[Rfam]
RNA sequence: GUCGGUUUGAAAGACAGACAGCAUACAAAGUAGUUUACUAAAGCAGUUCUCAUUAUCAGGCAUUAUCCCCUUCUUUUGAGUCUCUCUCCUGAACACUAAGUAGUUUCUGUAUUAAAGCCCUGUUUGCCGAAAGGCCCAAAAUGAAGGAAGUAAAAUAUGUCUAAUAAAAUGACUGGUUUAGUAAAAUGGUUUAACGCAGAUAAAGGUUUUGGCUUUAUCACUCCUGAUGAUGGCAGCAAAGACGUUUUCGUCCAUUUCACUGCCAUCCAGAGCAAUGAAUUCCGCACGCUGAACGAAAAUCAGAAAGUUGAAUUUUCUAUUGAGCAGGGGCAACGUGGUCCCGCGGCAGCGAACGUUGUUACGCUCUAAGGUUGCCGUUAUUACUCAACAUCUCCAUUUCCGCUGUCCAUGUUGCCAUGGUUC
Numbered sequence: 001g002u003c004g005g006u007u008u009g010a011a012a013g014a015c016a017g018a019c020a021g022c023a024u025a026c027a028a029a030g031u032a033g034u035u036u037a038c039u040a041a042a043g044c045a046g047u048u049c050u051c052a053u054u055a056u057c058a059g060g061c062a063u064u065a066u067c068c069c070c071u072u073c074u075u076u077u078g079a080g081u082c083u084c085u086c087u088c089c090u091g092a093a094c095a096c097u098a099a100g101u102a103g104u105u106u107c108u109g110u111a112u113u114a115a116a117g118c119c120c121u122g123u124u125u126g127c128c129g130a131a132a133g134g135c136c137c138a139a140a141a142u143g144a145a146g147g148a149a150g151u152a153a154a155a156u157a158u159g160u161c162u163a164a165u166a167a168a169a170u171g172a173c174u175g176g177u178u179u180a181g182u183a184a185a186a187u188g189g190u191u192u193a194a195c196g197c198a199g200a201u202a203a204a205g206g207u208u209u210u211g212g213c214u215u216u217a218u219c220a221c222u223c224c225u226g227a228u229g230a231u232g233g234c235a236g237c238a239a240a241g242a243c244g245u246u247u248u249c250g251u252c253c254a255u256u257u258c259a260c261u262g263c264c265a266u267c268c269a270g271a272g273c274a275a276u277g278a279a280u281u282c283c284g285c286a287c288g289c290u291g292a293a294c295g296a297a298a299a300u301c302a303g304a305a306a307g308u309u310g311a312a313u314u315u316u317c318u319a320u321u322g323a324g325c326a327g328g329g330g331c332a333a334c335g336u337g338g339u340c341c342c343g344c345g346g347c348a349g350c351g352a353a354c355g356u357u358g359u360u361a362c363g364c365u366c367u368a369a370g371g372u373u374g375c376c377g378u379u380a381u382u383a384c385u386c387a388a389c390a391u392c393u394c395c396a397u398u399u400c401c402g403c404u405g406u407c408c409a410u411g412u413u414g415c416c417a418u419g420g421u422u423c
Stems, first nucleotide, its partner, number of pairs: 005019005029225002032222003042216002046214001048212002050206002053203001055201003061196001063194002065191001067189002072159001074157001076155002085147003089143001097115001099113002126135003161176003165172001228322006241249002252310001254308004260303003266293001268291003327342005332336001343367001345365002348360004370395002377389003405422001407420005
This 423-nucleotide sequence from Escherichia coli belongs to the Rfam family "cspA thermoregulator". Pairs were carried over by alignment from the consensus structure, which is taken from published work. Gene Ontology terms of the family: response to temperature stimulus and regulation of translation.